RNA sequence: GCGCUCGCAGCGCUCGCGGGUGAGCGUCAGGCAGAUCAGGCCGCGGCCGAAGCGCGCCAUGAAGUUGAUGGCCUCCGGCGUGACGUGUUCGGCCGCCAGCACCA
Numbered sequence: 001g002c003g004c005u006c007g008c009a010g011c012g013c014u015c016g017c018g019g020g021u022g023a024g025c026g027u028c029a030g031g032c033a034g035a036u037c038a039g040g041c042c043g044c045g046g047c048c049g050a051a052g053c054g055c056g057c058c059a060u061g062a063a064g065u066u067g068a069u070g071g072c073c074u075c076c077g078g079c080g081u082g083a084c085g086u087g088u089u090c091g092g093c094c095g096c097c098a099g100c101a102c103c104a
Stems, first nucleotide, its partner, number of pairs: 003058001006056003010027006036050002039048003066104002069101002071096002075092003078088003

Shown here is a 104-nucleotide sequence from Ramlibacter sp. Leaf400, a member of the family "Vibrio RNA AS9". Rfam's curators write: Identified by direct cloning an parallel sequencing experiments with 5S/tRNA depletion. A search with the family's covariance model found it, with a score of 51 bits. On this family, see Liu et al., Nucleic Acids Res 2009: "Experimental discovery of sRNAs in Vibrio cholerae by direct cloning, 5S/tRNA depletion and parallel sequencing". By type it is an antisense RNA.